The family of this 76-nucleotide RNA sequence from Brasilonema sennae is "Cyano-1 RNA".
[Rfam]
RNA sequence: UAUGGUGUGAGGAGUAAGUUGAAAACAAAAAGCGCUUGAAGUCGAAACACGGCCAGACGUUCAAGCGCUUUUUGCU
Numbered sequence: 001u002a003u004g005g006u007g008u009g010a011g012g013a014g015u016a017a018g019u020u021g022a023a024a025a026c027a028a029a030a031a032g033c034g035c036u037u038g039a040a041g042u043c044g045a046a047a048c049a050c051g052g053c054c055a056g057a058c059g060u061u062c063a064a065g066c067g068c069u070u071u072u073u074g075c076u
Base pairs, nucleotide, nucleotide: 026074027073028072029071030070033067034066038062039061040060041058042057043056
The base pairs follow the family's consensus structure, which is taken from published work. The match comes from Rfam's covariance-model search (46 bits). NCBI's taxonomy places the organism under Bacteria, Bacillati, Cyanobacteriota, Scytonemataceae, Brasilonema sennae.